Description:
This 112-nucleotide RNA sequence from Orenia metallireducens belongs to the Rfam family "SAM riboswitch aptamer (S box leader)". The organism belongs to Orenia, within Bacteria.
[Rfam]
RNA sequence: AUCUUAUCAAGAGUGGUGGAGGGACUGGCCCAAUGAAGCCCGGCAACCGGUAGUAAGUGCUUACUAUGGCGGUGCUAAUUCCAGCAAUGCCUAAGGUAUUGAAAGAUAAGAA
Numbered sequence: 001a002u003c004u005u006a007u008c009a010a011g012a013g014u015g016g017u018g019g020a021g022g023g024a025c026u027g028g029c030c031c032a033a034u035g036a037a038g039c040c041c042g043g044c045a046a047c048c049g050g051u052a053g054u055a056a057g058u059g060c061u062u063a064c065u066a067u068g069g070c071g072g073u074g075c076u077a078a079u080u081c082c083a084g085c086a087a088u089g090c091c092u093a094a095g096g097u098a099u100u101g102a103a104a105g106a107u108a109a110g111a112a
Stems, first nucleotide, its partner, number of pairs: 002111007013041001015040003021031003025084004042076004047072002050067005080104001085101006